[Rfam]
Source information:
Shown here is a 177-nucleotide RNA sequence from Orthohepacivirus hominis, a member of the family "Hepatitis C virus (HCV) cis-acting replication element (CRE)". Gene Ontology term of the family: viral genome replication. The family's consensus secondary structure was predicted with RNAfold. Taxonomically the source falls in Orthohepacivirus hominis (Viruses, Riboviria, Flasuviricetes, Amarillovirales).

RNA sequence: CCAUUAGCUGACGCUGACCGGCUGGACUUGUCCAGCUGGUUCACCGUUGGCGCUGGCGGGGGGGACAUUUAUCACAGCAUGUCCCGUGCCCGACCCCGCAACUUACUCCUGUGCCUACUCCUACUUAGCGUAGGGGUAGGCAUCUUUUUACUCCCCGCUCGGUGAGCUGGGAGCUAA
Numbered sequence: 001c002c003a004u005u006a007g008c009u010g011a012c013g014c015u016g017a018c019c020g021g022c023u024g025g026a027c028u029u030g031u032c033c034a035g036c037u038g039g040u041u042c043a044c045c046g047u048u049g050g051c052g053c054u055g056g057c058g059g060g061g062g063g064g065a066c067a068u069u070u071a072u073c074a075c076a077g078c079a080u081g082u083c084c085c086g087u088g089c090c091c092g093a094c095c096c097c098g099c100a101a102c103u104u105a106c107u108c109c110u111g112u113g114c115c116u117a118c119u120c121c122u123a124c125u126u127a128g129c130g131u132a133g134g135g136g137u138a139g140g141c142a143u144c145u146u147u148u149u150a151c152u153c154c155c156c157g158c159u160c161g162g163u164g165a166g167c168u169g170g171g172a173g174c175u176a177a
Stems, first nucleotide, its partner, number of pairs: 008049001010047001013044001016041011056099006062085006112142013151173005157167001159165001